[Rfam]
RNA sequence: ACUACCCCUGGCAGUUUUGCAGGUGUGGCUGCUGUCGCACAUGUAUGUCAAUAGGCGACAAGUAGUAGAGAGGCUAUGUCACCACUCAGUGUUCUGACUGGUGAGCAGCUGAAUGACUAGUAACCUAACAUU
Number, nucleotide and partner (000 for none) at each position: 001a000002c000003u060004a000005c000006c057007c055008c054009u053010g052011g000012c000013a000014g048015u047016u000017u000018u000019g046020c000021a044022g000023g000024u041025g040026u039027g038028g000029c000030u000031g000032c000033u000034g000035u000036c000037g000038c027039a026040c025041a024042u000043g000044u021045a000046u019047g015048u014049c000050a000051a000052u010053a009054g008055g007056c000057g006058a000059c000060a003061a000062g000063u000064a000065g000066u000067a000068g129069a000070g000071a126072g125073g124074c000075u122076a121077u120078g000079u000080c000081a000082c000083c115084a114085c000086u112087c111088a110089g109090u107091g106092u105093u104094c103095u000096g000097a000098c000099u000100g000101g000102u000103g094104a093105g092106c091107a090108g000109c089110u088111g087112a086113a000114u084115g083116a000117c000118u000119a000120g077121u076122a075123a000124c073125c072126u071127a000128a000129c068130a000131u000132u000